[Rfam]
RNA sequence: AUCUUAUCAAGAGCGGUUGAGGGACUGGCCCUAUGAAACCCAGCAACCUAUACACAAAGUAUAAAGGUGCUAACUCCAGCAGGAAAUUUCCUGAAAGAUAAGAA
Numbered sequence: 001a002u003c004u005u006a007u008c009a010a011g012a013g014c015g016g017u018u019g020a021g022g023g024a025c026u027g028g029c030c031c032u033a034u035g036a037a038a039c040c041c042a043g044c045a046a047c048c049u050a051u052a053c054a055c056a057a058a059g060u061a062u063a064a065a066g067g068u069g070c071u072a073a074c075u076c077c078a079g080c081a082g083g084a085a086a087u088u089u090c091c092u093g094a095a096a097g098a099u100a101a102g103a104a
Base pairs, nucleotide, nucleotide: 002103003102004101005100006099007098008097013041015040016039017038021031022030023029025079026078027077028076042071043070044069045068047067048066049063050062051061052060075096080093081092082091083090084089